[Rfam]
This 198-nucleotide RNA sequence from Danionella cerebrum belongs to the Rfam family "Small nucleolar RNA SNORA74". Pairs were carried over by alignment from the consensus structure, which was predicted with PFOLD. Rfam 15.1 lists 1,348 matches to the family in 628 species. The match comes from Rfam's covariance-model search (100 bits). On this family, see Bortolin and Kiss, RNA 1998: "Human U19 intron-encoded snoRNA is processed from a long primary transcript that possesses little potential for protein coding". U19 belongs to the H/ACA class of snoRNAs. snoRNAs bind a number of proteins (including dyskerin, Gar1p and Nop10p in the case of the H/ACA class) to form snoRNP complexes. The family's RNA type in Rfam is H/ACA-box small nucleolar RNA. Gene Ontology terms of the family: RNA processing and nucleolus. Taxonomically the source falls in Danionella (Eukaryota, Teleostomi, Euteleostomi, Danioninae).
RNA sequence: CCCAGCGGUAGUCAGCUGUACAGGCCUCAUCAUGCCUGAGUUAGUGUUACUCUGCUGGGAGAGGAAAGCGCUGCCAUUUGUGCUCUGUCUGGUUUGACUGUUUUAGUGAAUCCUGAUGUGUUGCACUGGUUAUGCUGUGUCUUCUGAGAGUGGUCUGUUUUCACAAAAUGAGACAGGCCUAGUCUGGGGGCAAACACU
Numbered sequence: 001c002c003c004a005g006c007g008g009u010a011g012u013c014a015g016c017u018g019u020a021c022a023g024g025c026c027u028c029a030u031c032a033u034g035c036c037u038g039a040g041u042u043a044g045u046g047u048u049a050c051u052c053u054g055c056u057g058g059g060a061g062a063g064g065a066a067a068g069c070g071c072u073g074c075c076a077u078u079u080g081u082g083c084u085c086u087g088u089c090u091g092g093u094u095u096g097a098c099u100g101u102u103u104u105a106g107u108g109a110a111u112c113c114u115g116a117u118g119u120g121u122u123g124c125a126c127u128g129g130u131u132a133u134g135c136u137g138u139g140u141c142u143u144c145u146g147a148g149a150g151u152g153g154u155c156u157g158u159u160u161u162c163a164c165a166a167a168a169u170g171a172g173a174c175a176g177g178c179c180u181a182g183u184c185u186g187g188g189g190g191c192a193a194a195c196a197c198u
Stems, first nucleotide, its partner, number of pairs: 001059008011050002015045004021038005068135003073130004080126004086118004092112001094109001097107003138192007152179003156175006